[Rfam]
RNA: Small nucleolar RNA SNORA29
RNA sequence: UUUCCCAUUUUAGUACCAUUCAUUUAGUCCAAAAGAAUGAGUGGCUAUGCUAAUGGGAUAGAGAAACUCUGUCAUUGUCUGAAGGAGAGGCUGGCAGUUGUACCCCGCUUUCCUAUAUGAAAUGACAGCACAUCGAAUA
Number, nucleotide and partner (000 for none) at each position: 001u000002u000003u000004c057005c056006c055007a054008u000009u000010u000011u000012a000013g000014u000015a000016c044017c043018a042019u041020u000021c000022a000023u000024u000025u000026a000027g000028u000029c000030c000031a000032a000033a000034a000035g000036a000037a000038u000039g000040a000041g019042u018043g017044g016045c000046u000047a000048u000049g000050c000051u000052a000053a000054u007055g006056g005057g004058a000059u000060a000061g000062a000063g000064a000065a000066a000067c000068u000069c000070u000071g126072u125073c124074a123075u000076u000077g000078u000079c000080u000081g000082a000083a000084g000085g000086a000087g000088a114089g113090g112091c000092u000093g000094g000095c000096a000097g000098u000099u000100g000101u000102a000103c000104c000105c000106c000107g000108c000109u000110u000111u000112c090113c089114u088115a000116u000117a000118u000119g000120a000121a000122a000123u074124g073125a072126c071127a000128g000129c000130a000131c000132a000133u000134c000135g000136a000137a000138u000139a000